RNA sequence: CCUUUGGACUAUUAUACCAACCAAAGUAGUUUUAUACGAAAUGGAAUAGGAUGAACAAGGAA
Numbered sequence: 001c002c003u004u005u006g007g008a009c010u011a012u013u014a015u016a017c018c019a020a021c022c023a024a025a026g027u028a029g030u031u032u033u034a035u036a037c038g039a040a041a042u043g044g045a046a047u048a049g050g051a052u053g054a055a056c057a058a059g060g061a062a
Stems, first nucleotide, its partner, number of pairs: 001060004009049005021044003029037002

Shown here is a 62-nucleotide RNA sequence from Anaerosalibacter massiliensis, a member of the family "RAGATH-18 RNA". The family's consensus secondary structure is taken from published work. NCBI's taxonomy places the organism under Bacteria, Bacillota, Tissierellales, Sporanaerobacteraceae, Anaerosalibacter. By type it is a small RNA.